[Rfam]
RNA sequence: AUGCUAUGAUGACAUCCACAUGGUUUCGCAUCUGGCUGAGUUUCAGAGAUGACACCUUUUUCUUGGCUGUCUGAGUGU
Numbered sequence: 001a002u003g004c005u006a007u008g009a010u011g012a013c014a015u016c017c018a019c020a021u022g023g024u025u026u027c028g029c030a031u032c033u034g035g036c037u038g039a040g041u042u043u044c045a046g047a048g049a050u051g052a053c054a055c056c057u058u059u060u061u062c063u064u065g066g067c068u069g070u071c072u073g074a075g076u077g078u
Stems, first nucleotide, its partner, number of pairs: 001078004

A member of the RNA family "Small nucleolar RNA SNORD53/SNORD92" from Nannospalax galili, 78 nucleotides long. Lineage of the source: Eukaryota > Craniata > Dipnotetrapodomorpha > Amniota > Nannospalax. Gene Ontology terms of the family: RNA processing and nucleolus. The family is grouped with related families in Rfam's "SNORD52 clan". It is annotated as a C/D-box small nucleolar RNA. A search with the family's covariance model found it, with a score of 86 bits.